[Rfam]
RNA sequence: UAUUUAUCAGUGGCAAAGUCCACUAUAAAUG
Numbered sequence: 001u002a003u004u005u006a007u008c009a010g011u012g013g014c015a016a017a018g019u020c021c022a023c024u025a026u027a028a029a030u031g
Stems, first nucleotide, its partner, number of pairs: 001031007009024005014018001